[Rfam]
RNA sequence: CCGCUAUCCGCUAACCGGUUUGGCCGUGUCGCGGAAGGUUUUCCUGCAUCGUCAAGGGUGAAACGCCCGGAAAGGUGAAGCG
Numbered sequence: 001c002c003g004c005u006a007u008c009c010g011c012u013a014a015c016c017g018g019u020u021u022g023g024c025c026g027u028g029u030c031g032c033g034g035a036a037g038g039u040u041u042u043c044c045u046g047c048a049u050c051g052u053c054a055a056g057g058g059u060g061a062a063a064c065g066c067c068c069g070g071a072a073a074g075g076u077g078a079a080g081c082g
Stems, first nucleotide, its partner, number of pairs: 002082003007035005016026004037044002047077004056068005
RNA: SucA RNA motif